[Rfam]
The family of this 124-nucleotide RNA is "Staphylococcus-1 RNA".
It is one of the family's seed sequences.
The family's consensus secondary structure is taken from published work.

RNA sequence: CUUAUGAAUCUAACCCCUAUACUUGUAUAGGCGAUUAAUAAAUCUUCUGUAAAUGCUGUAAGAGGAUUACCCCUUGAGGUUUCAGCACUAGGCUGCUCUAGCGAUUAAUCAAUGCAUUUGUAUG
Numbered sequence: 001c002u003u004a005u006g007a008a009u010c011u012a013a014c015c016c017c018u019a020u021a022c023u024u025g026u027a028u029a030g031g032c033g034a035u036u037a038a039u040a041a042a043u044c045u046u047c048u049g050u051a052a053a054u055g056c057u058g059u060a061a062g063a064g065g066a067u068u069a070c071c072c073c074u075u076g077a078g079g080u081u082u083c084a085g086c087a088c089u090a091g092g093c094u095g096c097u098c099u100a101g102c103g104a105u106u107a108a109u110c111a112a113u114g115c116a117u118u119u120g121u122a123u124g
Base pairs, nucleotide, nucleotide: 001124003122004121005120006119007118008117009116017030018029019028020027021026033110034109035108036107037106038105039104041068042067043066044065045064046063047062055086056085057084058083088101089100090099091098092097